[Rfam]
RNA sequence: GUGUGCGGAUGAUAACUACUGACGAAAGAGUCAUCGACUCAGUUAGUGGUUGGAUGUAGUCACAU
Numbered sequence: 001g002u003g004u005g006c007g008g009a010u011g012a013u014a015a016c017u018a019c020u021g022a023c024g025a026a027a028g029a030g031u032c033a034u035c036g037a038c039u040c041a042g043u044u045a046g047u048g049g050u051u052g053g054a055u056g057u058a059g060u061c062a063c064a065u
Base pairs, nucleotide, nucleotide: 001065002064003063004062005061014051015050016049017048018047019046020045021044022043023042029039030038031037
Shown here is a 65-nucleotide sequence, a member of the family "Selenocysteine insertion sequence 1". Rfam classes the family as a cis-regulatory element. From the family's description: The incorporation of selenocysteine into a protein sequence is directed by an in-frame UGA codon (usually a stop codon) within the coding region of the mRNA. Selenoprotein mRNAs contain a conserved secondary structure in the 3' UTR that is required for the distinction of UGA stop from UGA selenocysteine. The selenocysteine insertion sequence (SECIS) is around 60 nt in length and adopts a hairpin structure which is sufficiently well-defined and conserved to act as a computational screen for selenoprotein genes. Pairs were carried over by alignment from the consensus structure, which is taken from published work.